This 73-nucleotide RNA from Oncorhynchus mykiss belongs to the Rfam family "Small nucleolar RNA SNORD99". Rfam classes the family as a C/D-box small nucleolar RNA. It scores 68 bits against the family's covariance model.
RNA sequence: UCUGAUCAAUGAUCGAUACUUUUUAAAAUGUGACUGUUGGAUGAAACAUGCGGAUAUGGGACUGAGAUCAGAA
Numbered sequence: 001u002c003u004g005a006u007c008a009a010u011g012a013u014c015g016a017u018a019c020u021u022u023u024u025a026a027a028a029u030g031u032g033a034c035u036g037u038u039g040g041a042u043g044a045a046a047c048a049u050g051c052g053g054a055u056a057u058g059g060g061a062c063u064g065a066g067a068u069c070a071g072a073a
Stems, first nucleotide, its partner, number of pairs: 001072005
Clan: SNORD58 clan.